[Rfam]
RNA sequence: CUAUGGCUUGAAAGAGAGUCAUGGCAAAGGAG
Numbered sequence: 001c002u003a004u005g006g007c008u009u010g011a012a013a014g015a016g017a018g019u020c021a022u023g024g025c026a027a028a029g030g031a032g
Stems, first nucleotide, its partner, number of pairs: 001024008
L31-Firmicutes ribosomal protein leader: a 32-nucleotide sequence. Clan: Ribosomal Protein L31 Leader clan. The family's consensus secondary structure is taken from published work. The family's RNA type in Rfam is cis-regulatory leader.